[Rfam]
RNA sequence: UCCAUUGUGAGGUGGAAUCUGAAGGAAGUCGGCGGCAAACCUUUGGUCUGAGGUAUACAAAUCACAUUUGAGGCUUAAUUCUGUGGGUGAGCUUGCUAGACAAAGCAAAGCCCUAUAACUAUCCGAAAACAGAUAAAGUAAAUGUGGCAGAUUGAUGAAGGGAAAGUGCACGUU
Dot-bracket structure: ((((((....))))))...........(.((...((...(((((((((((...........((((((.....(((....(((((((((..((((........))))...))))...............)))))...)))..)))))))))))...))))))....))...)).)
The record is a 174-nucleotide sequence from Clostridium vincentii, which matches "Group II catalytic intron D1-D4-3" in Rfam. Pairs were carried over by alignment from the consensus structure. From the family's description: Group II introns are found in rRNA, tRNA and mRNA of organelles in fungi, plants and protists, and also in mRNA in bacteria. Rfam 15.1 lists 4,274 matches to the family in 1,585 species. For this family Rfam cites "Control of branch-site choice by a group II intron" (Chu et al., EMBO J, 2001). Rfam links the family to the GO term Group II intron splicing.